[Rfam]
RNA: mir-7371 microRNA precursor family
Organism: Monodelphis domestica
RNA sequence: UUUGUAUCAGAUGCUUUGUUUGUAUAUUCUAUCAAAAGAGCAUCUUAUACAAAUG
Numbered sequence: 001u002u003u004g005u006a007u008c009a010g011a012u013g014c015u016u017u018g019u020u021u022g023u024a025u026a027u028u029c030u031a032u033c034a035a036a037a038g039a040g041c042a043u044c045u046u047a048u049a050c051a052a053a054u055g
Stems, first nucleotide, its partner, number of pairs: 001053007009045009019036004